[Rfam]
Nucleotides: 078
Base pairs, nucleotide, nucleotide: 001019002018005016006015007014008013032039033038041078042077043076050071051070052069053068054067055066
Number, partner (000 for none) and nucleotide at each position: 001019u002018a003000a004000u005016u006015u007014a008013c009000a010000u011000a012000a013008g014007u015006a016005g017000c018002u019001g020000a021000a022000u023000c024000a025000u026000c027000a028000g029000a030000a031000g032039u033038c034000a035000g036000c037000a038033g039032a040000g041078g042077u043076c044000a045000u046000a047000g048000u049000a050071c051070g052069a053068a054067u055066c056000g057000g058000u059000c060000u061000a062000g063000a064000a065000c066055g067054a068053u069052u070051c071050g072000g073000a074000a075000g076043g077042a078041c